Description:
A member of the RNA family "tRNA" from Ilumatobacter coccineus, 73 nucleotides long. A search with the family's covariance model found it, with a score of 69 bits. Rfam classes the family as a transfer RNA. Its family is annotated with triplet codon-amino acid adaptor activity in the Gene Ontology.
[Rfam]
RNA sequence: GCUUCUCUAGCUCAAUUGGCAGAGCAGUGGACUCUUAAUCCAUUGGUUCUGGGUUCAAGUCCCAGGGGAAGCA
Numbered sequence: 001g002c003u004u005c006u007c008u009a010g011c012u013c014a015a016u017u018g019g020c021a022g023a024g025c026a027g028u029g030g031a032c033u034c035u036u037a038a039u040c041c042a043u044u045g046g047u048u049c050u051g052g053g054u055u056c057a058a059g060u061c062c063c064a065g066g067g068g069a070a071g072c073a
Stems, first nucleotide, its partner, number of pairs: 001072007010025004027043005049065005